[Rfam]
RNA: ncRNA Repressor of NFAT (nuclear factor of activated T cells)
Organism: Ictidomys tridecemlineatus
RNA sequence: GGGAGCAAAUGGCGUCGGAACUCUGGAACCUUCCCUUUGGAUGGUUACAUUAAUCCAUAUAAGGAAAUCUCUUUUUAAUGAGGAGGUGAUGGAGUCUCAAACUCUCCCGACCCAUAAUUAGAGCAAACUAAUGAAGCUGUGUUUUGACACACUUUCCAAACUCACGGGCGCCGGCGACACACUCACAACACUGCUGCAGAAUCAUUAGGCUAAUAACACUCGCUCGCAUCCCGUGAAGCUCGCCCUCCCUCAGACGCUGUUUCUGCACCCGCCUGCCCUGUGGACUCCACUGAAGAUAUCAACUGUGAUUAUGAGCACUUUUGUGGAAUUCUAAUGUUAAGAG
Numbered sequence: 001g002g003g004a005g006c007a008a009a010u011g012g013c014g015u016c017g018g019a020a021c022u023c024u025g026g027a028a029c030c031u032u033c034c035c036u037u038u039g040g041a042u043g044g045u046u047a048c049a050u051u052a053a054u055c056c057a058u059a060u061a062a063g064g065a066a067a068u069c070u071c072u073u074u075u076u077a078a079u080g081a082g083g084a085g086g087u088g089a090u091g092g093a094g095u096c097u098c099a100a101a102c103u104c105u106c107c108c109g110a111c112c113c114a115u116a117a118u119u120a121g122a123g124c125a126a127a128c129u130a131a132u133g134a135a136g137c138u139g140u141g142u143u144u145u146g147a148c149a150c151a152c153u154u155u156c157c158a159a160a161c162u163c164a165c166g167g168g169c170g171c172c173g174g175c176g177a178c179a180c181a182c183u184c185a186c187a188a189c190a191c192u193g194c195u196g197c198a199g200a201a202u203c204a205u206u207a208g209g210c211u212a213a214u215a216a217c218a219c220u221c222g223c224u225c226g227c228a229u230c231c232c233g234u235g236a237a238g239c240u241c242g243c244c245c246u247c248c249c250u251c252a253g254a255c256g257c258u259g260u261u262u263c264u265g266c267a268c269c270c271g272c273c274u275g276c277c278c279u280g281u282g283g284a285c286u287c288c289a290c291u292g293a294a295g296a297u298a299u300c301a302a303c304u305g306u307g308a309u310u311a312u313g314a315g316c317a318c319u320u321u322u323g324u325g326g327a328a329u330u331c332u333a334a335u336g337u338u339a340a341g342a343g
Stems, first nucleotide, its partner, number of pairs: 048336005054327005061320003069085006091312001093310004098305001103110002123272002133155004138151005166249003170243002197235002209227002212224001214222001